[Rfam]
RNA sequence: CUUUGUAGUCUUCCACAGCUUUCUUGAACUGCACCCAUCCUUGUAAGGGAGGGGCUUUGAAUUGCAGUUCAAUAAAGCUGUGGGAAAUUACAGAGA
Numbered sequence: 001c002u003u004u005g006u007a008g009u010c011u012u013c014c015a016c017a018g019c020u021u022u023c024u025u026g027a028a029c030u031g032c033a034c035c036c037a038u039c040c041u042u043g044u045a046a047g048g049g050a051g052g053g054g055c056u057u058u059g060a061a062u063u064g065c066a067g068u069u070c071a072a073u074a075a076a077g078c079u080g081u082g083g084g085a086a087a088u089u090a091c092a093g094a095g096a
Stems, first nucleotide, its partner, number of pairs: 003093005013083003017079006024072004029067005
Overview:
Rfam assigns this 96-nucleotide RNA from Cocos nucifera to the family "MIR396 microRNA precursor family". Its family is annotated with RISC complex and miRNA-mediated post-transcriptional gene silencing in the Gene Ontology. Pairs were carried over by alignment from the consensus structure, which was predicted with WAR. The family has 26 seed sequences and 744 matches in Rfam 15.1. The literature on the family includes a 2005 paper in Plant Physiol by Xie et al., "Expression of Arabidopsis MIRNA genes". Taxonomically the source falls in Cocos (Eukaryota, Viridiplantae, Streptophyta, Attaleinae).